[Rfam]
The record is a 77-nucleotide sequence from Marinisporobacter balticus, which matches "Glycine riboswitch aptamer" in Rfam. Its family is annotated with glycine biosynthetic process in the Gene Ontology. The match comes from Rfam's covariance-model search (47 bits). Pairs were carried over by alignment from the consensus structure.
RNA sequence: AUGAAGAUAAUAGGAGAGCGAUCCACGGAUCCACCGAAGAAGUUACGCUUUCAGGUAAAAGGGACUAUUAUUGGACG
Numbered sequence: 001a002u003g004a005a006g007a008u009a010a011u012a013g014g015a016g017a018g019c020g021a022u023c024c025a026c027g028g029a030u031c032c033a034c035c036g037a038a039g040a041a042g043u044u045a046c047g048c049u050u051u052c053a054g055g056u057a058a059a060a061g062g063g064a065c066u067a068u069u070a071u072u073g074g075a076c077g
Stems, first nucleotide, its partner, number of pairs: 006072008020031004033056003036052002040050003